Rfam assigns this 104-nucleotide sequence from Noviherbaspirillum humi to the family "Vibrio RNA AS9". By type it is an antisense RNA. Identified by direct cloning an parallel sequencing experiments with 5S/tRNA depletion. Confirmed by Northern blot. The organism belongs to Noviherbaspirillum, within Bacteria. The family's consensus secondary structure was predicted with RNAfold. On this family, see Liu et al., Nucleic Acids Res 2009: "Experimental discovery of sRNAs in Vibrio cholerae by direct cloning, 5S/tRNA depletion and parallel sequencing".
RNA sequence: CUGGUUGCAGCGCUCUUCGGUGAGCGUCAGGCAGAUCAGUCCGCGGCCGUACUUGGCCAUAAAAUUGAUCGCUUCCGGCGUGACGAACUCGGCGGCGAGAACCA
Numbered sequence: 001c002u003g004g005u006u007g008c009a010g011c012g013c014u015c016u017u018c019g020g021u022g023a024g025c026g027u028c029a030g031g032c033a034g035a036u037c038a039g040u041c042c043g044c045g046g047c048c049g050u051a052c053u054u055g056g057c058c059a060u061a062a063a064a065u066u067g068a069u070c071g072c073u074u075c076c077g078g079c080g081u082g083a084c085g086a087a088c089u090c091g092g093c094g095g096c097g098a099g100a101a102c103c104a
Stems, first nucleotide, its partner, number of pairs: 003058005010027006035050002039047003066104002069101001071096002075092003078088001